[Rfam]
Source information:
Mammalian CPEB3 ribozyme: a 78-nucleotide RNA sequence from Laticauda laticaudata. The organism belongs to Laticauda, within Eukaryota. It scores 75 bits against the family's covariance model. From the family's description: The mammalian CPEB3 ribozyme is a self cleaving RNA located in the second intron of the CPEB3 gene which belongs to a family of genes regulating messenger RNA polyadenylation. This ribozyme is highly conserved and found only in mammals. The CPEB3 ribozyme is structurally and biochemically related to the human hepatitis delta virus (HDV) ribozyme and the HDV ribozyme is proposed to have arisen from the human transcriptome. There is currently only one other known self cleaving ribozyme in mammals, the CoTC motif.
RNA sequence: ACUGACUUUUGGGGGGCCAUAGAAGGAGCGUUCACUUCGUGGCCCCUGUCAGGUAUCUGUUUACCUGCGAAUCCUUCU
Dot-bracket structure: ............[[[[[[..((((((((((.......)))]]]]]]...((((((......))))))....)))))))
Numbered sequence: 001a002c003u004g005a006c007u008u009u010u011g012g013g014g015g016g017c018c019a020u021a022g023a024a025g026g027a028g029c030g031u032u033c034a035c036u037u038c039g040u041g042g043c044c045c046c047u048g049u050c051a052g053g054u055a056u057c058u059g060u061u062u063a064c065c066u067g068c069g070a071a072u073c074c075u076u077c078u
Stems, first nucleotide, its partner, number of pairs: 013046006021078007028040003050067006